[Rfam]
RNA sequence: UGACCCAGAGAGAGAGGCAGGGUCUGAUCUGCAGUCUCUGUGGCAGUUGUUGGUCAGCUGUUGCCUCUCUUUCUCUCUGGG
Numbered sequence: 001u002g003a004c005c006c007a008g009a010g011a012g013a014g015a016g017g018c019a020g021g022g023u024c025u026g027a028u029c030u031g032c033a034g035u036c037u038c039u040g041u042g043g044c045a046g047u048u049g050u051u052g053g054u055c056a057g058c059u060g061u062u063g064c065c066u067c068u069c070u071u072u073c074u075c076u077c078u079g080g081g
Stems, first nucleotide, its partner, number of pairs: 008073013022059001024057006032049004
mir-574 microRNA precursor family: an 81-nucleotide sequence from Pipistrellus kuhlii. Rfam links the family to the GO terms miRNA-mediated post-transcriptional gene silencing and RISC complex. The organism belongs to Pipistrellus, within Eukaryota.